[Rfam]
RNA sequence: GGACGAGCCUCUGGAGAGUUCCAUUGACUUGGACGCCGAAGGCGCAAGCUGCAUACCCUGUGUAUGUAGUGAAACGCUCAGGCACAAAGGACAGAGAGUAGAUU
Numbered sequence: 001g002g003a004c005g006a007g008c009c010u011c012u013g014g015a016g017a018g019u020u021c022c023a024u025u026g027a028c029u030u031g032g033a034c035g036c037c038g039a040a041g042g043c044g045c046a047a048g049c050u051g052c053a054u055a056c057c058c059u060g061u062g063u064a065u066g067u068a069g070u071g072a073a074a075c076g077c078u079c080a081g082g083c084a085c086a087a088a089g090g091a092c093a094g095a096g097a098g099u100a101g102a103u104u
Base pairs, nucleotide, nucleotide: 006099009096010095011094012093013092020033021032022031023030035083036082037081038079039078042077043076044075048070049069050068051067052066053065054064055063056062
RNA: Glycine riboswitch aptamer